[Rfam]
RNA: t44 RNA
RNA sequence: GUACAUUUUUACUUAAAACACACAUAUACCGACACUGAACUCGGGGUGUCUGAUUUUUUAAAGCAUUGCGAUAAAAAUGAAGAUCGAGCGAAGGGGUAUAUGGAGGCCUAAC
Numbered sequence: 001g002u003a004c005a006u007u008u009u010u011a012c013u014u015a016a017a018a019c020a021c022a023c024a025u026a027u028a029c030c031g032a033c034a035c036u037g038a039a040c041u042c043g044g045g046g047u048g049u050c051u052g053a054u055u056u057u058u059u060a061a062a063g064c065a066u067u068g069c070g071a072u073a074a075a076a077a078u079g080a081a082g083a084u085c086g087a088g089c090g091a092a093g094g095g096g097u098a099u100a101u102g103g104a105g106g107c108c109u110a111a112c
Stems, first nucleotide, its partner, number of pairs: 023102008035093002040088004048084004